[Rfam]
RNA sequence: GAGCAUCUUUAAUAAACCCCCCAGUUGCCAUUUGUGGUCUCUGGGACAAGAAAGGGUGCAAGAUCAAUCUUAGAAUUAUCCAAAGCUAAGAGCAAUGUGUCAGUAGUUCUUGGCUAUUUCACCUCUAAGACAGAA
Numbered sequence: 001g002a003g004c005a006u007c008u009u010u011a012a013u014a015a016a017c018c019c020c021c022c023a024g025u026u027g028c029c030a031u032u033u034g035u036g037g038u039c040u041c042u043g044g045g046a047c048a049a050g051a052a053a054g055g056g057u058g059c060a061a062g063a064u065c066a067a068u069c070u071u072a073g074a075a076u077u078a079u080c081c082a083a084a085g086c087u088a089a090g091a092g093c094a095a096u097g098u099g100u101c102a103g104u105a106g107u108u109c110u111u112g113g114c115u116a117u118u119u120c121a122c123c124u125c126u127a128a129g130a131c132a133g134a135a
Stems, first nucleotide, its partner, number of pairs: 003059004008052003020045005027038002064134002068130007084115007092107002098103001

The record is a 135-nucleotide RNA from Sander lucioperca, which matches "Small nucleolar RNA SNORA14" in Rfam. About the family: ACA14 is a member of the H/ACA class of snoRNA that guide the sites of modification of uridines to pseudouridines. The family's consensus secondary structure was predicted with RNAfold. Rfam classes the family as an H/ACA-box small nucleolar RNA. The family has 18 seed sequences and 848 matches in Rfam 15.1.